A member of the RNA family "mir-190 microRNA precursor family" from Ictalurus punctatus, 63 nucleotides long. Pairs were carried over by alignment from the consensus structure, which was predicted with RNAalifold. The source organism's lineage runs through Eukaryota, Actinopteri, Neopterygii, Teleostei and Ictalurus.

RNA sequence: UGAUAUGUUUGAUAUUCGGUUGCUUUCUUUAUAUCAUGUCAACUAAAUAUCAGACAUAUUCCU
Numbered sequence: 001u002g003a004u005a006u007g008u009u010u011g012a013u014a015u016u017c018g019g020u021u022g023c024u025u026u027c028u029u030u031a032u033a034u035c036a037u038g039u040c041a042a043c044u045a046a047a048u049a050u051c052a053g054a055c056a057u058a059u060u061c062c063u
Base pairs, nucleotide, nucleotide: 002060003059004058005057006056007055008054009053010052011051012050013049014048015047016046018044019043020042021041022040